[Rfam]
RNA sequence: ACGAUUUCCUGACAAGGAGAGAGAGCACGCUAGUCGACAUUUCAUGCAUAGGACAUGACUGUUUACAAGCGUGCUCUCCUCUCUUGUCAUAAAUUU
Numbered sequence: 001a002c003g004a005u006u007u008c009c010u011g012a013c014a015a016g017g018a019g020a021g022a023g024a025g026c027a028c029g030c031u032a033g034u035c036g037a038c039a040u041u042u043c044a045u046g047c048a049u050a051g052g053a054c055a056u057g058a059c060u061g062u063u064u065a066c067a068a069g070c071g072u073g074c075u076c077u078c079c080u081c082u083c084u085u086g087u088c089a090u091a092a093a094u095u096u
Base pairs, nucleotide, nucleotide: 010089011088012087013086014085016083017082021078023076025074026073027072028071029070030069031068033066034065
RNA: MIR535 microRNA precursor family